The record is a 166-nucleotide RNA from Eubacterium sp. CAG:38, which matches "Clostridiales-1 RNA" in Rfam. The match comes from Rfam's covariance-model search (125 bits). Rfam classes the family as a small RNA. The family's consensus secondary structure is taken from published work.

[Rfam]
RNA sequence: GGAUACCAGGGUCAAAAGGUCUGAACCCACAUGAGCUUGCUCAUAUGUGGGUGAACGACCUUGGGACCCGCCCGCUAUGAGCAUAAAAGUGGGAUGAAAUCCCACGAUAUGCGAAUAGCGGGCCGGAUUGUGAGAGUGCGCAGCACGAAACAAUCCGUGAUUAUUA
Numbered sequence: 001g002g003a004u005a006c007c008a009g010g011g012u013c014a015a016a017a018g019g020u021c022u023g024a025a026c027c028c029a030c031a032u033g034a035g036c037u038u039g040c041u042c043a044u045a046u047g048u049g050g051g052u053g054a055a056c057g058a059c060c061u062u063g064g065g066a067c068c069c070g071c072c073c074g075c076u077a078u079g080a081g082c083a084u085a086a087a088a089g090u091g092g093g094a095u096g097a098a099a100u101c102c103c104a105c106g107a108u109a110u111g112c113g114a115a116u117a118g119c120g121g122g123c124c125g126g127a128u129u130g131u132g133a134g135a136g137u138g139c140g141c142a143g144c145a146c147g148a149a150a151c152a153a154u155c156c157g158u159g160a161u162u163a164u165u166a
Stems, first nucleotide, its partner, number of pairs: 002165004010068004016062006022055001025052006031044005071122008081112004089105007125156007136146004